Nucleotides: 194
Base pairs, nucleotide, nucleotide: 008027009026010025012023013022014021015020048067049066052063053062069085070084071083072082073081074080075079113148114147115146116145117144118143119142120141127138128137129136130135151189154186155185156184158180159179161177162176163175
Number, partner (000 for none) and nucleotide at each position: 001000a002000u003000a004000c005000c006000u007000u008027u009026c010025u011000c012023g013022g014021u015020c016000u017000u018000u019000u020015g021014g022013c023012u024000a025010a026009g027008a028000u029000c030000a031000a032000g033000u034000g035000u036000a037000g038000u039000a040000u041000c042000u043000g044000u045000u046000c047000u048067u049066a050000u051000c052063a053062g054000u055000u056000u057000a058000a059000u060000a061000u062053c063052u064000a065000c066049u067048a068000c069085g070084u071083a072082a073081g074080c075079c076000a077000u078000c079075g080074g081073c082072u083071u084070a085069c086000a087000u088000g089000a090000u091000a092000u093000u094000a095000a096000a097000u098000u099000a100000a101000u102000u103000u104000u105000u106000u107000a108000a109000g110000g111000g112000u113148g114147a115146g116145g117144g118143a119142u120141u121000g122000u123000a124000a125000c126000g127138a128137u129136a130135g131000c132000u133000u134000g135130c136129u137128a138127u139000u140000g141120g142119g143118u144117u145116c146115c147114u148113c149000g150000a151189g152000c153000a154186u155185c156184g157000c158180c159179c160000a161177u162176g163175u164000g165000u166000u167000g168000c169000a170000c171000u172000a173000c174000u175163g176162c177161a178000a179159g180158g181000g182000c183000c184156u185155g186154g187000c188000a189151c190000a191000c192000c193000a194000c
This 194-nucleotide sequence from Acer saccharum belongs to the Rfam family "U2 spliceosomal RNA". Pairs were carried over by alignment from the consensus structure, which is taken from published work. From the family's description: U2 is a small nuclear RNA (snRNA) component of the spliceosome (involved in pre-mRNA splicing). Complementary binding between U2 snRNA (in an area lying towards the 5' end but 3' to hairpin I) and the branchpoint sequence (BPS) of the intron results the bulging out of an unpaired adenosine, on the BPS, which initiates a nucleophilic attack at the intronic 5' splice site, thus starting the first of two transesterification reactions that mediate splicing. A reference for the family is Zwieb (1997), "The uRNA database", Nucleic Acids Res. Rfam 15.1 lists 71,512 matches to the family in 2,642 species.